Group II catalytic intron D1-D4-6: a 226-nucleotide RNA from Paraburkholderia panacisoli.
Its family is annotated with Group II intron splicing in the Gene Ontology.
The base pairs follow the family's consensus structure.
The family has 174 seed sequences and 1,617 matches in Rfam 15.1.
RNA sequence: AAAGUCCCCGACGUUGUAAGAAAUAGCGACUCACAAUGUCCCCGAGUCAUGCGUGGCAAGCCGCGAGGCGUGUUGCGAAGCGUUGACAGGGGUGCUGAUAGGCCAGCCAUUGAGCCACGAAAUGUUCAUUAAAUUCCCGGGUGCCGACGUACUACUGUAUGCGGAAGGCAACACUGCACGGCGCGCUAUCGCAAGCUCCGUGUGGACCCGGCGCGGUCUGAGACCC
Numbered sequence: 001a002a003a004g005u006c007c008c009c010g011a012c013g014u015u016g017u018a019a020g021a022a023a024u025a026g027c028g029a030c031u032c033a034c035a036a037u038g039u040c041c042c043c044g045a046g047u048c049a050u051g052c053g054u055g056g057c058a059a060g061c062c063g064c065g066a067g068g069c070g071u072g073u074u075g076c077g078a079a080g081c082g083u084u085g086a087c088a089g090g091g092g093u094g095c096u097g098a099u100a101g102g103c104c105a106g107c108c109a110u111u112g113a114g115c116c117a118c119g120a121a122a123u124g125u126u127c128a129u130u131a132a133a134u135u136c137c138c139g140g141g142u143g144c145c146g147a148c149g150u151a152c153u154a155c156u157g158u159a160u161g162c163g164g165a166a167g168g169c170a171a172c173a174c175u176g177c178a179c180g181g182c183g184c185g186c187u188a189u190c191g192c193a194a195g196c197u198c199c200g201u202g203u204g205g206a207c208c209c210g211g212c213g214c215g216g217u218c219u220g221a222g223a224c225c226c
Base pairs, nucleotide, nucleotide: 012038013037014036015035016034020032021031024194026192027191040092041091042090043089046087047086048085049084050082051081052077053076054075055074056073057072058071060069061068062067111220112218114217115216116215118213119212137211138210139209140208141207142206143169144168145167148163149162150161151160174205175204176203177202178201179200180199181198183196184195